This 106-nucleotide RNA sequence from Deinococcus koreensis belongs to the Rfam family "SAM riboswitch aptamer (S box leader)". About the family: The SAM riboswitch is found upstream of a number of genes which code for proteins involved in methionine or cysteine biosynthesis in Gram-positive bacteria. The source organism's lineage runs through Bacteria, Thermotogati, Deinococcota, Deinococci and Deinococcus. The family's consensus secondary structure is taken from published work.
RNA sequence: CCAUCAAGAGCGCCCGAGAGACCUGGCUCGCAGACGGCGCGGCAACCGAACCUCAUGACGUUACGGUGCCAAGGCCAGCCCCCCGGGCAUGGGUCGACGAUGACCG
Number, nucleotide and partner (000 for none) at each position: 001c000002c102003a101004u100005c099006a000007a000008g000009a000010g040011c039012g038013c037014c036015c000016g000017a000018g029019a028020g027021a000022c000023c078024u077025g076026g075027c020028u019029c018030g000031c000032a000033g000034a000035c000036g014037g013038c012039g011040c010041g070042g069043c068044a067045a000046c066047c065048g062049a061050a000051c000052c000053u000054c000055a000056u000057g000058a000059c000060g000061u049062u048063a000064c000065g047066g046067u044068g043069c042070c041071a000072a000073g000074g098075c026076c025077a024078g023079c000080c000081c093082c092083c091084c000085g000086g000087g000088c000089a000090u000091g083092g082093g081094u000095c000096g000097a000098c074099g005100a004101u003102g002103a000104c000105c000106g000